A member of the RNA family "Qrr RNA" from Vibrio aerogenes, 105 nucleotides long. The family has 30 seed sequences and 148 matches in Rfam 15.1. About the family: This family represents a set of small RNAs (the Qrr RNAs) that are thought to be involved in the regulation of quorum sensing in Vibrio species. It is believed that these RNAs, guided by a protein, Hfq, can mediate the destabilisation of the quorum-sensing master regulators LuxR/HapR mRNAs. The family's RNA type in Rfam is small RNA. The organism belongs to Vibrio aerogenes, within Bacteria. The base pairs follow the family's consensus structure, which is taken from published work. A search with the family's covariance model found it, with a score of 91 bits.
[Rfam]
RNA sequence: UAGCCCUUUUUAAGCCGGGGGCUACCUAGCCAACUGACGUUGUUAGUGAAUAUGAAUUGUUCACACAAAUUUUUAGCCAAUCAUCUCUUGAUUGGCUUUUUUUUG
Numbered sequence: 001u002a003g004c005c006c007u008u009u010u011u012a013a014g015c016c017g018g019g020g021g022c023u024a025c026c027u028a029g030c031c032a033a034c035u036g037a038c039g040u041u042g043u044u045a046g047u048g049a050a051u052a053u054g055a056a057u058u059g060u061u062c063a064c065a066c067a068a069a070u071u072u073u074u075a076g077c078c079a080a081u082c083a084u085c086u087c088u089u090g091a092u093u094g095g096c097u098u099u100u101u102u103u104u105g
Stems, first nucleotide, its partner, number of pairs: 001024006040075001042073001046064007077095007